[Rfam]
RNA sequence: CCCAGAGGUAUUGAUAGGUGGAAUCAACGUAGUCGUUGAUCACACGAAUUACACCAACCUGCGUAGAAAUGCGCAGGUUUUUUUU
Numbered sequence: 001c002c003c004a005g006a007g008g009u010a011u012u013g014a015u016a017g018g019u020g021g022a023a024u025c026a027a028c029g030u031a032g033u034c035g036u037u038g039a040u041c042a043c044a045c046g047a048a049u050u051a052c053a054c055c056a057a058c059c060u061g062c063g064u065a066g067a068a069a070u071g072c073g074c075a076g077g078u079u080u081u082u083u084u085u
Base pairs, nucleotide, nucleotide: 017055018054019053020052021045023040024039025038026037027036028035057078058077059076060075061074062073063072064071

This 85-nucleotide RNA from Salmonella enterica belongs to the Rfam family "OmrA-B family". On this family, see Holmqvist et al., EMBO J 2010: "Two antisense RNAs target the transcriptional regulator CsgD to inhibit curli synthesis". The base pairs follow the family's consensus structure, which was predicted with WAR. It is annotated as a small RNA. Rfam 15.1 lists 153 matches to the family in 128 species.